[Rfam]
RNA sequence: UGGACAGAUUAUUGUAUUCGACUGUAUUCAUGGCGUGAAACAGGGGAUUAUACUGUUUUUAAACGAAAAGUAAAUCAAUUGACAUAAUAUAACUCA
Numbered sequence: 001u002g003g004a005c006a007g008a009u010u011a012u013u014g015u016a017u018u019c020g021a022c023u024g025u026a027u028u029c030a031u032g033g034c035g036u037g038a039a040a041c042a043g044g045g046g047a048u049u050a051u052a053c054u055g056u057u058u059u060u061a062a063a064c065g066a067a068a069a070g071u072a073a074a075u076c077a078a079u080u081g082a083c084a085u086a087a088u089a090u091a092a093c094u095c096a
Base pairs, nucleotide, nucleotide: 002095003094010089011088012087013086014085015084017082018081020080021079023077024076026075027074028073030071031070034065035064036063037059038058039057040056041055042054043053

This 96-nucleotide RNA sequence from Nicotiana attenuata belongs to the Rfam family "MIR6152 microRNA precursor family". A search with the family's covariance model found it, with a score of 86 bits. Taxonomically the source falls in Nicotiana (Eukaryota, Tracheophyta, Mesangiospermae, Solanales). Rfam links the family to the GO terms RISC complex and miRNA-mediated post-transcriptional gene silencing.